SAM riboswitch aptamer (S box leader): a 103-nucleotide RNA sequence from Clostridium intestinale.
RNA sequence: CUCUUAUCAAGAGAGGUGGAGGGAUAGGGCCCUGCGAAACCCGGCAACCUGUGUUAUGCACAAAGGUGCCAAUUCCUGCAGUGAAAAAUCUGCGAGAUAAGAG
Numbered sequence: 001c002u003c004u005u006a007u008c009a010a011g012a013g014a015g016g017u018g019g020a021g022g023g024a025u026a027g028g029g030c031c032c033u034g035c036g037a038a039a040c041c042c043g044g045c046a047a048c049c050u051g052u053g054u055u056a057u058g059c060a061c062a063a064a065g066g067u068g069c070c071a072a073u074u075c076c077u078g079c080a081g082u083g084a085a086a087a088a089u090c091u092g093c094g095a096g097a098u099a100a101g102a103g
Stems, first nucleotide, its partner, number of pairs: 001103008013042001015041003021032003027077003043070004048066002050062004074095001079092003
The source organism's lineage runs through Bacteria, Bacillati, Clostridia, Clostridiaceae and Clostridium intestinale.